[Rfam]
RNA sequence: GAAUUUUGAUUAACGCCUGACAGUGUGUCAGGCCUGAUGGAAG
Numbered sequence: 001g002a003a004u005u006u007u008g009a010u011u012a013a014c015g016c017c018u019g020a021c022a023g024u025g026u027g028u029c030a031g032g033c034c035u036g037a038u039g040g041a042a043g
Stems, first nucleotide, its partner, number of pairs: 015033007
nuoG RNA: a 43-nucleotide RNA from Mangrovibacter sp. MFB070. The match comes from Rfam's covariance-model search (41 bits). Lineage of the source: Bacteria > Pseudomonadati > Gammaproteobacteria > Enterobacteriaceae > Mangrovibacter. Rfam classes the family as a cis-regulatory element.